[Rfam]
A member of the RNA family "mir-146 microRNA precursor family" from Aquarana catesbeiana, 94 nucleotides long. The base pairs follow the family's consensus structure, which was predicted with WAR. Its family is annotated with RISC complex and miRNA-mediated post-transcriptional gene silencing in the Gene Ontology.
RNA sequence: AUGAGUUCCCAGCUGUGAGAACUGAGUUCCAAAGGUUGUUUUGGAUUUAAAUAUGAGACCUGUGGGGCUCAGUUCUGCAGUUUGGCUCACAGUA
Numbered sequence: 001a002u003g004a005g006u007u008c009c010c011a012g013c014u015g016u017g018a019g020a021a022c023u024g025a026g027u028u029c030c031a032a033a034g035g036u037u038g039u040u041u042u043g044g045a046u047u048u049a050a051a052u053a054u055g056a057g058a059c060c061u062g063u064g065g066g067g068c069u070c071a072g073u074u075c076u077g078c079a080g081u082u083u084g085g086c087u088c089a090c091a092g093u094a
Stems, first nucleotide, its partner, number of pairs: 008085002011082003018076008033061004